[Rfam]
RNA sequence: GAGAUAUGAUGAGUGGUCUAGUCUCACAUUGCAUAUGCGACUUGGGUGUCUGCCCCAAGCCUUGUUAUGACAAUUGGGCACUCUCCGUUGACCAAUUUGAUCUC
Numbered sequence: 001g002a003g004a005u006a007u008g009a010u011g012a013g014u015g016g017u018c019u020a021g022u023c024u025c026a027c028a029u030u031g032c033a034u035a036u037g038c039g040a041c042u043u044g045g046g047u048g049u050c051u052g053c054c055c056c057a058a059g060c061c062u063u064g065u066u067a068u069g070a071c072a073a074u075u076g077g078g079c080a081c082u083c084u085c086c087g088u089u090g091a092c093c094a095a096u097u098u099g100a101u102c103u104c
Stems, first nucleotide, its partner, number of pairs: 001104004014094005024040002027037001044083007062076001064074002
A member of the RNA family "Small nucleolar RNA Z279/snoR105/snoR108" from Lathyrus oleraceus, 104 nucleotides long.
Rfam links the family to the GO terms RNA processing and nucleolus.
A search with the family's covariance model found it, with a score of 74 bits.
A reference for the family is Marker et al. (2002), "Experimental RNomics: identification of 140 candidates for small non-messenger RNAs in the plant Arabidopsis thaliana", Curr Biol.
The base pairs follow the family's consensus structure, which was predicted with PFOLD.
Rfam 15.1 lists 906 matches to the family in 223 species.
By type it is a C/D-box small nucleolar RNA.
Clan: snoU13 clan.
Rfam's curators write: This family includes the plant snoRNAs known as Z279, snoR105 and snoR108.